Annotation
The record is an 80-nucleotide RNA sequence from Hermetia illucens, which matches "drz-agam-1 ribozyme" in Rfam. A reference for the family is Webb et al. (2009), "Widespread occurrence of self-cleaving ribozymes", Science.

[Rfam]
RNA sequence: AGUUCUACUACUCCUAUCUCCACCUCCACGUGGUGACCGCUGGAAGCUCUUUCUUAACGAAAAGCUGCAGACGAAGAAGG
Dot-bracket structure: ............(((.(.((.(((.......)))..........((((.((.(.....))).))))......)).).)))
Numbered sequence: 001a002g003u004u005c006u007a008c009u010a011c012u013c014c015u016a017u018c019u020c021c022a023c024c025u026c027c028a029c030g031u032g033g034u035g036a037c038c039g040c041u042g043g044a045a046g047c048u049c050u051u052u053c054u055u056a057a058c059g060a061a062a063a064g065c066u067g068c069a070g071a072c073g074a075a076g077a078a079g080g
Stems, first nucleotide, its partner, number of pairs: 013080003017076001019074002022034003045066004050061002053059001